Description:
SAM riboswitch aptamer (S box leader): a 114-nucleotide RNA sequence from Gottschalkia acidurici. The source organism's lineage runs through Bacteria, Bacillota, Tissierellales, Gottschalkiaceae and Gottschalkia acidurici. The match comes from Rfam's covariance-model search (70 bits). Rfam links the family to the GO term regulation of gene expression. Rfam's curators write: The SAM riboswitch is found upstream of a number of genes which code for proteins involved in methionine or cysteine biosynthesis in Gram-positive bacteria.
RNA sequence: AACUCAUCGAGAGAGAUUGAGGGAACUGGCCCAAUGAAAUCCGGCAACCGAGCUUGUGCUAAGGUGCUAAAUCCAGCGGUAUAGCCAAAAAAAUUGGUAUCCGGAAGAUGAGGG
Numbered sequence: 001a002a003c004u005c006a007u008c009g010a011g012a013g014a015g016a017u018u019g020a021g022g023g024a025a026c027u028g029g030c031c032c033a034a035u036g037a038a039a040u041c042c043g044g045c046a047a048c049c050g051a052g053c054u055u056g057u058g059c060u061a062a063g064g065u066g067c068u069a070a071a072u073c074c075a076g077c078g079g080u081a082u083a084g085c086c087a088a089a090a091a092a093a094u095u096g097g098u099a100u101c102c103g104g105a106a107g108a109u110g111a112g113g114g
Stems, first nucleotide, its partner, number of pairs: 003112006013042001015041003021032003026076004043068004048064002051060003072106001077103003